[Rfam]
RNA sequence: AGCUGCGUGGUGAGCACAGAGCGAACUAUUCUUUCGCCUUUUACUAAAGAAUACCGUGUGCUCGCCACUUUUAAGCAGCAUACGCCAAUUUUUGAAGGGCGCUUUUCUAACCGGAGAGCC
Numbered sequence: 001a002g003c004u005g006c007g008u009g010g011u012g013a014g015c016a017c018a019g020a021g022c023g024a025a026c027u028a029u030u031c032u033u034u035c036g037c038c039u040u041u042u043a044c045u046a047a048a049g050a051a052u053a054c055c056g057u058g059u060g061c062u063c064g065c066c067a068c069u070u071u072u073a074a075g076c077a078g079c080a081u082a083c084g085c086c087a088a089u090u091u092u093u094g095a096a097g098g099g100c101g102c103u104u105u106u107c108u109a110a111c112c113g114g115a116g117a118g119c120c
Stems, first nucleotide, its partner, number of pairs: 003078004008067011027053008098120003102116004
RNA: U5 spliceosomal RNA